[Rfam]
Nucleotides: 354
Stems, first nucleotide, its partner, number of pairs: 041056005060192005070185002072181004084170002088167003094110005111152007193208004199218002202216003320335004326351006
Number, partner (000 for none) and nucleotide at each position: 001000a002000g003000a004000c005000u006000u007000g008000a009000a010000a011000a012000c013000c014000c015000c016000c017000g018000c019000a020000u021000u022000c023000c024000c025000a026000c027000c028000u029000a030000g031000a032000u033000a034000g035000c036000g037000u038000g039000g040000u041056g042055u043054c044053g045052g046000a047000g048000c049000a050000a051000u052045c053044c054043g055042a056041c057000u058000a059000u060192g061191g062190c063189g064188a065000u066000a067000a068000a069000c070185g071184c072181g073180c074179c075178c076000g077000u078000a079000a080000u081000a082000a083000g084170c085169g086000g087000c088167u089166c090165g091000g092000a093000c094110c095109c096108g097107g098106g099000g100000g101000c102000g103000g104000u105000a106098c107097c108096c109095g110094g111152c112151g113150g114149c115148u116147c117146c118000a119000c120000c121000a122000a123000c124000u125000u126000c127000c128000c129000u130000c131000a132000u133000u134000g135000g136000c137000u138000g139000g140000g141000a142000a143000c144000a145000a146117g147116g148115g149114g150113c151112c152111g153000a154000a155000a156000u157000a158000g159000g160000a161000u162000c163000g164000a165090c166089g167088g168000a169085c170084g171000u172000c173000u174000a175000a176000a177000g178075g179074g180073g181072u182000u183000a184071g185070c186000u187000u188064u189063c190062g191061c192060u193208c194207g195206g196205u197000g198000a199218g200217g201000u202216a203215c204214c205196a206195c207194c208193g209000u210000u211000a212000u213000c214204g215203g216202u217200c218199c219000a220000a221000g222000c223000a224000u225000g226000a227000u228000a229000g230000u231000u232000g233000c234000c235000a236000a237000u238000g239000a240000c241000a242000a243000c244000c245000g246000u247000g248000c249000u250000c251000c252000g253000g254000u255000c256000g257000c258000c259000g260000u261000u262000g263000c264000u265000g266000c267000g268000u269000a270000a271000g272000c273000a274000g275000u276000a277000a278000c279000c280000a281000g282000a283000c284000c285000g286000a287000a288000a289000c290000u291000u292000a293000a294000g295000c296000c297000c298000u299000g300000g301000c302000c303000u304000c305000u306000a307000g308000c309000a310000a311000g312000g313000u314000c315000a316000g317000g318000c319000g320335g321334g322333g323332u324000u325000c326351g327350c328349a329348g330347g331346c332323a333322c334321c335320u336000g337000g338000c339000a340000a341000c342000a343000g344000a345000a346331g347330c348329c349328u350327g351326c352000a353000c354000u
A member of the RNA family "Alphaproteobacteria transfer-messenger RNA" from Pacificitalea manganoxidans, 354 nucleotides long. Taxonomically the source falls in Pacificitalea (Bacteria, Pseudomonadota, Alphaproteobacteria, Paracoccaceae). The base pairs follow the family's consensus structure, which is taken from published work.